[Rfam]
RNA sequence: CAACCACAGCCGAAAGGCUGUGCUGAAUAUGCAGAAGUCAGCAGAGGCCAUAGUAGCCGAGAGGUGAAGGGC
Numbered sequence: 001c002a003a004c005c006a007c008a009g010c011c012g013a014a015a016g017g018c019u020g021u022g023c024u025g026a027a028u029a030u031g032c033a034g035a036a037g038u039c040a041g042c043a044g045a046g047g048c049c050a051u052a053g054u055a056g057c058c059g060a061g062a063g064g065u066g067a068a069g070g071g072c
Stems, first nucleotide, its partner, number of pairs: 001025002005022007038045002047072003056065003
This 72-nucleotide sequence from Selenomonas sputigena belongs to the Rfam family "Group II catalytic intron D1-D4-1". Group II introns are found in rRNA, tRNA and mRNA of organelles in fungi, plants and protists, and also in mRNA in bacteria. The sequence is in the family's curated seed alignment. The base pairs follow the family's consensus structure.